[Rfam]
RNA sequence: UCAGUUGCAAUCUAGCAUCUGGGGCACACAUAACGAGUAUCUGAUUACUCUCUUUGCCCCGGGAAGGUCUGAGAAUUGGUCGAAGCUUGUGUGUUUUGUACAACAUGCCAAUUCAUCCGAAAGGGGUUUGGCGUGUAGCUUCAUUUCCUAGCAGGAAACCUGUGUGAUUACAGGGCGAAGGUACCAGAAAUACUGUACUGUUUGGCUUGUUGCGGUCCCCUCGACCGCCGCCUUACGGAUGCAUUGAAAUCUUUCGUGACCAGCCGUUUUAGUGCGAUGUGCUUGCUGCUAUAAGCUACCCUCCUUUGGAGGCAGUGGAAAGCAGAACUCAAUUCAGACUAAUCUGCAACUGA
Numbered sequence: 001u002c003a004g005u006u007g008c009a010a011u012c013u014a015g016c017a018u019c020u021g022g023g024g025c026a027c028a029c030a031u032a033a034c035g036a037g038u039a040u041c042u043g044a045u046u047a048c049u050c051u052c053u054u055u056g057c058c059c060c061g062g063g064a065a066g067g068u069c070u071g072a073g074a075a076u077u078g079g080u081c082g083a084a085g086c087u088u089g090u091g092u093g094u095u096u097u098g099u100a101c102a103a104c105a106u107g108c109c110a111a112u113u114c115a116u117c118c119g120a121a122a123g124g125g126g127u128u129u130g131g132c133g134u135g136u137a138g139c140u141u142c143a144u145u146u147c148c149u150a151g152c153a154g155g156a157a158a159c160c161u162g163u164g165u166g167a168u169u170a171c172a173g174g175g176c177g178a179a180g181g182u183a184c185c186a187g188a189a190a191u192a193c194u195g196u197a198c199u200g201u202u203u204g205g206c207u208u209g210u211u212g213c214g215g216u217c218c219c220c221u222c223g224a225c226c227g228c229c230g231c232c233u234u235a236c237g238g239a240u241g242c243a244u245u246g247a248a249a250u251c252u253u254u255c256g257u258g259a260c261c262a263g264c265c266g267u268u269u270u271a272g273u274g275c276g277a278u279g280u281g282c283u284u285g286c287u288g289c290u291a292u293a294a295g296c297u298a299c300c301c302u303c304c305u306u307u308g309g310a311g312g313c314a315g316u317g318g319a320a321a322g323c324a325g326a327a328c329u330c331a332a333u334u335c336a337g338a339c340u341a342a343u344c345u346g347c348a349a350c351u352g353a
Base pairs, nucleotide, nucleotide: 001353002352003351004350007347008346009345012285014283015282016281017280018279021060022059023058024057025056035050036049037048038047039046069337070336071335072334073333078261079260080259081258144158145157146156147155148154159174160173161172162171163170164169175257176256177255178254179253180252181251195242196241197240286325287324288323289322290321292319

About this RNA
The family of this 353-nucleotide RNA from Drosophila willistoni is "Nuclear RNase P". Taxonomically the source falls in Sophophora (Eukaryota, Metazoa, Diptera, Acalyptratae). The family's RNA type in Rfam is ribozyme. From the family's description: Ribonuclease P (RNase P) is a ubiquitous endoribonuclease, found in archaea, bacteria and eukarya as well as chloroplasts and mitochondria. Clan: RNaseP clan.